[Rfam]
Record summary
Shown here is a 112-nucleotide RNA from Maritimibacter alkaliphilus, a member of the family "TPP riboswitch aptamer (THI element)".
RNA sequence: UGCCUCACCUCGGGGUGCCCGUGCGACGCAAGUCGUCCGGCUGAGAUGCGAAAGCGAACCCGUUGAACCUGAACCGGCUAGCACCGGCGGAGGGAAGGUCAGGACCAUCACA
Numbered sequence: 001u002g003c004c005u006c007a008c009c010u011c012g013g014g015g016u017g018c019c020c021g022u023g024c025g026a027c028g029c030a031a032g033u034c035g036u037c038c039g040g041c042u043g044a045g046a047u048g049c050g051a052a053a054g055c056g057a058a059c060c061c062g063u064u065g066a067a068c069c070u071g072a073a074c075c076g077g078c079u080a081g082c083a084c085c086g087g088c089g090g091a092g093g094g095a096a097g098g099u100c101a102g103g104a105c106c107a108u109c110a111c112a
Base pairs, nucleotide, nucleotide: 007099008098009097010096011062012061013060014059016056017041018040019039021037048055049054068093069092070091074087075086076085077084